[Rfam]
RNA sequence: ACGACCUUACUUGAACAGGAUCUGUUCUAUAGGGAAGUACCUCCGAAUCCUUUACUAAAAUGAGAAAGGAAACCACACCUGGUUGAUGAAAUAUAGCUGAGGGGCUAGAGCGUGAUUAGUAGCCAGGUCCUAGUUUGGAUCGUGGUGGCGGAUGAUCGUUCUCAACUCCUCACGGGUUGGGAUGGCUCCUUGGCCUUCUGACAGGUG
Numbered sequence: 001a002c003g004a005c006c007u008u009a010c011u012u013g014a015a016c017a018g019g020a021u022c023u024g025u026u027c028u029a030u031a032g033g034g035a036a037g038u039a040c041c042u043c044c045g046a047a048u049c050c051u052u053u054a055c056u057a058a059a060a061u062g063a064g065a066a067a068g069g070a071a072a073c074c075a076c077a078c079c080u081g082g083u084u085g086a087u088g089a090a091a092u093a094u095a096g097c098u099g100a101g102g103g104g105c106u107a108g109a110g111c112g113u114g115a116u117u118a119g120u121a122g123c124c125a126g127g128u129c130c131u132a133g134u135u136u137g138g139a140u141c142g143u144g145g146u147g148g149c150g151g152a153u154g155a156u157c158g159u160u161c162u163c164a165a166c167u168c169c170u171c172a173c174g175g176g177u178u179g180g181g182a183u184g185g186c187u188c189c190u191u192g193g194c195c196u197u198c199u200g201a202c203a204g205g206u207g
Base pairs, nucleotide, nucleotide: 001038002037005033006032007031013027014026015025016024017023018022043068048063049062051060052059053058077206078205079204080203081202096194097193098192099191100190101189102188103187104186105185106184107183109160110159111158112157119149120148122146123145124144125143127141128139129138162180163179164178165177166176167175168174
RNA: Plant small nucleolar RNA U3